[Rfam]
RNA sequence: UUCAACCUCAAGGGGUGCUGGGUUAGCCGGCUGAGAUAGUAUCCGUGAAAGCGUGUUAGAUACGUACCCUUUAAACCUGAUCUGGGUAAUGCCAGCGUAGGAAUGGAGAGAAUUCGAGUG
Numbered sequence: 001u002u003c004a005a006c007c008u009c010a011a012g013g014g015g016u017g018c019u020g021g022g023u024u025a026g027c028c029g030g031c032u033g034a035g036a037u038a039g040u041a042u043c044c045g046u047g048a049a050a051g052c053g054u055g056u057u058a059g060a061u062a063c064g065u066a067c068c069c070u071u072u073a074a075a076c077c078u079g080a081u082c083u084g085g086g087u088a089a090u091g092c093c094a095g096c097g098u099a100g101g102a103a104u105g106g107a108g109a110g111a112a113u114u115c116g117a118g119u120g
Stems, first nucleotide, its partner, number of pairs: 006108001008106003011070004016064001017031005039063004076101004082095004